About this RNA
This 124-nucleotide RNA from Pseudescherichia vulneris belongs to the Rfam family "Phenylalanine leader peptide". Pairs were carried over by alignment from the consensus structure, which was predicted with CMfinder. The literature on the family includes a 1978 paper in Proc Natl Acad Sci U S A by Zurawski et al., "Nucleotide sequence of the leader region of the phenylalanine operon of Escherichia coli". The family's RNA type in Rfam is cis-regulatory leader. NCBI's taxonomy places the organism under Bacteria, Pseudomonadati, Gammaproteobacteria, Pseudescherichia, Pseudescherichia vulneris.
[Rfam]
RNA sequence: CAAGCAUGAAUGCUGCUAUUUUCCGCUUCUUUUUUUACUUUAGCACCUGAUCCCAGGGGGCUUGCGCGUGAAAGAAGAAACGAAAAACAGCGCCAGAAAGCCUCCCCAGGGAGGCUUUUUUUAU
Numbered sequence: 001c002a003a004g005c006a007u008g009a010a011u012g013c014u015g016c017u018a019u020u021u022u023c024c025g026c027u028u029c030u031u032u033u034u035u036u037a038c039u040u041u042a043g044c045a046c047c048u049g050a051u052c053c054c055a056g057g058g059g060g061c062u063u064g065c066g067c068g069u070g071a072a073a074g075a076a077g078a079a080a081c082g083a084a085a086a087a088c089a090g091c092g093c094c095a096g097a098a099a100g101c102c103u104c105c106c107c108a109g110g111g112a113g114g115c116u117u118u119u120u121u122u123a124u
Base pairs, nucleotide, nucleotide: 015091016090017089020086021085022084024082025081027079028078029077030076031075032074033073035071036070037069038068044056060065097118098117099116100115101114102113103112104111105110